[Rfam]
RNA: Y RNA
RNA sequence: GGCUGAUCCAGGUGCAGUGGUAUUUACAACUAAUUGAUCACAACCAGUUUGUAGAUUUCUUUGUUCCUUCUCCAUUCCCACUGCUUCACUUGCCUAGUCUUGA
Numbered sequence: 001g002g003c004u005g006a007u008c009c010a011g012g013u014g015c016a017g018u019g020g021u022a023u024u025u026a027c028a029a030c031u032a033a034u035u036g037a038u039c040a041c042a043a044c045c046a047g048u049u050u051g052u053a054g055a056u057u058u059c060u061u062u063g064u065u066c067c068u069u070c071u072c073c074a075u076u077c078c079c080a081c082u083g084c085u086u087c088a089c090u091u092g093c094c095u096a097g098u099c100u101u102g103a
Base pairs, nucleotide, nucleotide: 001099002098003097004096005095008092010091011090014087016082017081018080019079020078028065029064030063032061033060